RNA sequence: UAAGUCGCUAACUGUAAGUCGCUCUGGAUAAGAGCGUCUGCUAAAUGACGUAAA
Numbered sequence: 001u002a003a004g005u006c007g008c009u010a011a012c013u014g015u016a017a018g019u020c021g022c023u024c025u026g027g028a029u030a031a032g033a034g035c036g037u038c039u040g041c042u043a044a045a046u047g048a049c050g051u052a053a054a
Stems, first nucleotide, its partner, number of pairs: 013043001014041003020036006
This 54-nucleotide RNA from Coregonus sp. 'balchen' belongs to the Rfam family "UnaL2 LINE 3' element". It scores 66 bits against the family's covariance model. Lineage of the source: Eukaryota > Metazoa > Teleostomi > Clupeocephala > Coregonus.